RNA sequence: GCCUGGACGCCGCCGAGCCCGUGUCGCAUCCAUCGCGUCCGGGGCCGGGGACCCACCGCAGCACUGGGGUGAAUCCUGGAUCGCCGAACCUUUCGGCGCCCGGGUAGGGCGACUUCCCGCCCGAAUCCGUCAGCUAACUCGGUAGGCGGCCAUGGAAGACAGG
Number, nucleotide and partner (000 for none) at each position: 001g000002c000003c000004u000005g000006g000007a000008c000009g000010c000011c148012g147013c146014c145015g000016a000017g000018c043019c042020c041021g000022u000023g000024u000025c000026g000027c000028a000029u000030c000031c000032a000033u000034c000035g000036c000037g000038u000039c000040c000041g020042g019043g018044g143045c142046c141047g140048g139049g138050g000051a000052c000053c000054c066055a065056c000057c000058g000059c000060a000061g000062c000063a000064c000065u055066g054067g128068g127069g126070u000071g000072a000073a000074u000075c104076c103077u102078g101079g000080a000081u000082c000083g000084c000085c000086g000087a000088a000089c000090c000091u000092u000093u000094c000095g000096g000097c000098g000099c000100c000101c078102g077103g076104g075105u000106a000107g122108g121109g120110c119111g000112a000113c000114u000115u000116c000117c000118c000119g110120c109121c108122c107123g000124a000125a000126u069127c068128c067129g000130u000131c000132a000133g000134c000135u000136a000137a000138c049139u048140c047141g046142g045143u044144a000145g014146g013147c012148g011149g000150c000151c000152a000153u000154g000155g000156a000157a000158g000159a000160c000161a000162g000163g000